[Rfam]
RNA sequence: UGUGCCUCUCGAAUAACCAAUUGCUGUGUUAGUGUAUUUGCAUUUGGUUCAGGCAAGGGCACAUAACAAAUGGGAUCUUUUUGAGGGAAGGAAUCUUGUUCUUUGUUGAUCCCUUCUUAGAUUGAUUCCAAGAGUU
Numbered sequence: 001u002g003u004g005c006c007u008c009u010c011g012a013a014u015a016a017c018c019a020a021u022u023g024c025u026g027u028g029u030u031a032g033u034g035u036a037u038u039u040g041c042a043u044u045u046g047g048u049u050c051a052g053g054c055a056a057g058g059g060c061a062c063a064u065a066a067c068a069a070a071u072g073g074g075a076u077c078u079u080u081u082u083g084a085g086g087g088a089a090g091g092a093a094u095c096u097u098g099u100u101c102u103u104u105g106u107u108g109a110u111c112c113c114u115u116c117u118u119a120g121a122u123u124g125a126u127u128c129c130a131a132g133a134g135u136u
Base pairs, nucleotide, nucleotide: 003061004060005059006058007057009056015049016048017047018046019045020044022042024040026038072129073128074127075126076125077124081105084102085101086100088099091096108123109122110121111120

Source information
The record is a 136-nucleotide sequence from Setaria viridis, which matches "Small nucleolar RNA snoR138" in Rfam. The source organism's lineage runs through Eukaryota, Viridiplantae, Streptophytina, Petrosaviidae and Setaria. It scores 54 bits against the family's covariance model. The family has 7 seed sequences and 308 matches in Rfam 15.1. A reference for the family is Chen and Wu (2009), "Mining small RNA sequencing data: a new approach to identify small nucleolar RNAs in Arabidopsis", Nucleic Acids Res. It is annotated as an H/ACA-box small nucleolar RNA.